[Rfam]
RNA sequence: CUUUAAGUAUAAGUAUGUCCCCUGAAAUACUGGGGACAUACUUAUACUAAAA
Numbered sequence: 001c002u003u004u005a006a007g008u009a010u011a012a013g014u015a016u017g018u019c020c021c022c023u024g025a026a027a028u029a030c031u032g033g034g035g036a037c038a039u040a041c042u043u044a045u046a047c048u049a050a051a052a
Base pairs, nucleotide, nucleotide: 006048007047008046009045010044011043012042014040015039016038018036019035020034021033

The record is a 52-nucleotide RNA from Macaca nemestrina, which matches "mir-1302 microRNA precursor family" in Rfam. Rfam 15.1 lists 16,160 matches to the family in 135 species. The family's consensus secondary structure was predicted with WAR. A search with the family's covariance model found it, with a score of 63 bits. The organism belongs to Macaca, within Eukaryota.